[Rfam]
Rfam assigns this 143-nucleotide sequence from Aquibium carbonis to the family "Alphaproteobacterial sRNA ar7".
The base pairs follow the family's consensus structure.
It scores 93 bits against the family's covariance model.
The organism belongs to Aquibium, within Bacteria.
RNA sequence: CAUCGGAAGUUGUUUCCGAGUUCGGUCAAAGGCCCGUCCCCCGCCUCGCCGAACAAAGCGGCGGCCUCAUCCCCCCCUCUCCGGGCCGCCGCGAAUUAAAGUACGGCCACCGUGGUAUCCCCCCUCCACCACGGUGGCCGAUU
Numbered sequence: 001c002a003u004c005g006g007a008a009g010u011u012g013u014u015u016c017c018g019a020g021u022u023c024g025g026u027c028a029a030a031g032g033c034c035c036g037u038c039c040c041c042c043g044c045c046u047c048g049c050c051g052a053a054c055a056a057a058g059c060g061g062c063g064g065c066c067u068c069a070u071c072c073c074c075c076c077c078u079c080u081c082c083g084g085g086c087c088g089c090c091g092c093g094a095a096u097u098a099a100a101g102u103a104c105g106g107c108c109a110c111c112g113u114g115g116u117a118u119c120c121c122c123c124c125u126c127c128a129c130c131a132c133g134g135u136g137g138c139c140g141a142u143u
Base pairs, nucleotide, nucleotide: 021053022052023051024050025049026048031045032044033043058092059091060090061089062088063087064086065085066084107137108136109135110134111133112132113131114130115129116128
By type it is a small RNA.